[Rfam]
RNA: Bacterial large signal recognition particle RNA
RNA sequence: AUGCGCAGCCGGGGAGAUAGCGGUGCCCUGUACCUGCAAUCCGCUAUAGCAGGGGUGAUACCAAUCUGAGGGCUUCUUCUUGCAGAGCUGCCUUCUAUAAGUGGCGUUGACGUUUGGGUCUUACGCAACAGAACUCUGUGAACCGUGUCAGGUCAGGAAUGAAGCAGCACUAAGCAGAACCUUCUGUGUGCCGUAAGGGUGCCUGAGCCGAGUUAACUGUAGGAGUAACGUCUGUGAGAGAAGUUCGAGGUGCGGUGCGCAU
Numbered sequence: 001a002u003g004c005g006c007a008g009c010c011g012g013g014g015a016g017a018u019a020g021c022g023g024u025g026c027c028c029u030g031u032a033c034c035u036g037c038a039a040u041c042c043g044c045u046a047u048a049g050c051a052g053g054g055g056u057g058a059u060a061c062c063a064a065u066c067u068g069a070g071g072g073c074u075u076c077u078u079c080u081u082g083c084a085g086a087g088c089u090g091c092c093u094u095c096u097a098u099a100a101g102u103g104g105c106g107u108u109g110a111c112g113u114u115u116g117g118g119u120c121u122u123a124c125g126c127a128a129c130a131g132a133a134c135u136c137u138g139u140g141a142a143c144c145g146u147g148u149c150a151g152g153u154c155a156g157g158a159a160u161g162a163a164g165c166a167g168c169a170c171u172a173a174g175c176a177g178a179a180c181c182u183u184c185u186g187u188g189u190g191c192c193g194u195a196a197g198g199g200u201g202c203c204u205g206a207g208c209c210g211a212g213u214u215a216a217c218u219g220u221a222g223g224a225g226u227a228a229c230g231u232c233u234g235u236g237a238g239a240g241a242a243g244u245u246c247g248a249g250g251u252g253c254g255g256u257g258c259g260c261a262u
Base pairs, nucleotide, nucleotide: 001262002261003260004259005258006257007256008056009055010054011029012028013027014026016024018022033053034052035051036050037049061255062254064251065250066249067248070246071245072244073243074242077240078239079238080237081236082235083234084233085232086231089227090226093224094223095222096221097220098219101217102216103214104213105212112208113207114206115205116204117203118202119201120197121196122195123194124193125192126188127187129186130185131184132183133182135178136177137176138175139174145170146169147168148167153162154161155160